Shown here is a 112-nucleotide RNA from Streptomyces sp. ADI97-07, a member of the family "SAM (S-adenosyl methionine) riboswitch aptamer". It scores 86 bits against the family's covariance model. Taxonomically the source falls in Streptomyces (Bacteria, Actinomycetes, Kitasatosporales, Streptomycetaceae).
RNA sequence: GGUCAUGAGUUCCAGUGGCAAGCCCCGGCUCGCUGGACGGCACCCCGCUUCCGCUGCGGGUGCUCCGGGUGACGACCCGCUCCGCGCGGCACCGCGCGGGGAACAGCGGACA
Numbered sequence: 001g002g003u004c005a006u007g008a009g010u011u012c013c014a015g016u017g018g019c020a021a022g023c024c025c026c027g028g029c030u031c032g033c034u035g036g037a038c039g040g041c042a043c044c045c046c047g048c049u050u051c052c053g054c055u056g057c058g059g060g061u062g063c064u065c066c067g068g069g070u071g072a073c074g075a076c077c078c079g080c081u082c083c084g085c086g087c088g089g090c091a092c093c094g095c096g097c098g099g100g101g102a103a104c105a106g107c108g109g110a111c112a
Stems, first nucleotide, its partner, number of pairs: 001077004009038001011037006021030002039064003044060005080101009